[Rfam]
This 59-nucleotide RNA sequence from Phycicoccus sp. HDW14 belongs to the Rfam family "msiK RNA". The source organism's lineage runs through Bacteria, Actinomycetota, Actinomycetes, Micrococcales and Phycicoccus.
RNA sequence: GGAGCUCCACCCUUUACAACGGAUCGUCCGGCACGUUCCUGCCGGUGAAGGAAAGGCAA
Dot-bracket structure: ..........((((((...........((((((......))))))))))))........